[Rfam]
RNA: SAM riboswitch aptamer (S box leader)
Organism: Spiroplasma sp. NBRC 100390
Nucleotides: 106
Base pairs, nucleotide, nucleotide: 001106003104004103005102006101007100008099013042014041015040016039017038021031022030043071044070045069046068048067049066050063051062052061080095081094082093083092085090
Number, partner (000 for none) and nucleotide at each position: 001106a002000a003104c004103u005102u006101a007100u008099u009000u010000a011000g012000a013042a014041g015040u016039g017038g018000u019000u020000a021031g022030u023000a024000c025000g026000c027000u028000a029000a030022a031021c032000g033000a034000u035000g036000a037000u038017c039016c040015a041014c042013u043071a044070g045069c046068a047000a048067c049066c050063c051062u052061a053000u054000a055000u056000u057000u058000a059000a060000u061052u062051a063050g064000a065000a066049g067048g068046u069045g070044c071043u072000u073000u074000u075000a076000g077000c078000a079000g080095g081094g082093c083092a084000a085090g086000a087000u088000g089000a090085u091000a092083u093082g094081c095080u096000a097000c098000c099008a100007a101006u102005a103004a104003g105000a106001u